[Rfam]
RNA sequence: GCUACGCCCGGACGAAAUUCCCAGCUCGGCCGACAUGCGCGGGUCGGUGGGAUCUUCGUCCGUGUUUAUC
Numbered sequence: 001g002c003u004a005c006g007c008c009c010g011g012a013c014g015a016a017a018u019u020c021c022c023a024g025c026u027c028g029g030c031c032g033a034c035a036u037g038c039g040c041g042g043g044u045c046g047g048u049g050g051g052a053u054c055u056u057c058g059u060c061c062g063u064g065u066u067u068a069u070c
Base pairs, nucleotide, nucleotide: 003068004067006065007064009062010061011060012059013058014057015056019052020051021050024048027046028045029044030043031042
Dot-bracket structure: ..((.((.(((((((...(((..(..(((((..........))))).).)))...))))))).)).))..